Annotation:
Rfam assigns this 143-nucleotide RNA sequence from Phrynocephalus forsythii to the family "U11 spliceosomal RNA". The source organism's lineage runs through Eukaryota, Sauria, Unidentata, Iguania and Phrynocephalus.
[Rfam]
RNA sequence: UAAACUGCUGUGAGUGGCACAUGGAGAGAGAUGGCUGCGGCCUUAUCCUUUUCUAUGCAGAAUCGCUAUCAAGAGAUUUUGGAAGCGUAAUUUUUGUUCCAGGGGUAGCUGGUAAAGCAGAUGUAAUUCUUUAAACCACCCUG
Dot-bracket structure: (....(((((....)))))(((((((((.(((((........))))).)))))))))(((((((..........))))))))....................((((.(.(...((((...........))))..).)))))..
Source information
Clan: U1 clan. The match comes from Rfam's covariance-model search (53 bits). The family's RNA type in Rfam is spliceosomal small nuclear RNA.